[Rfam]
RNA sequence: UUGCCCCAUGAUGCUCAGGUCCGCCGCAUCUCCUGGUCUCGUGGGGUCGACCGGCUGACGGUAACCGGCUUCCUCGUGCCGCUGCCGUUAGCCGGUCGGUCUCGUG
Numbered sequence: 001u002u003g004c005c006c007c008a009u010g011a012u013g014c015u016c017a018g019g020u021c022c023g024c025c026g027c028a029u030c031u032c033c034u035g036g037u038c039u040c041g042u043g044g045g046g047u048c049g050a051c052c053g054g055c056u057g058a059c060g061g062u063a064a065c066c067g068g069c070u071u072c073c074u075c076g077u078g079c080c081g082c083u084g085c086c087g088u089u090a091g092c093c094g095g096u097c098g099g100u101c102u103c104g105u106g
Stems, first nucleotide, its partner, number of pairs: 003047008015036005049101009059091001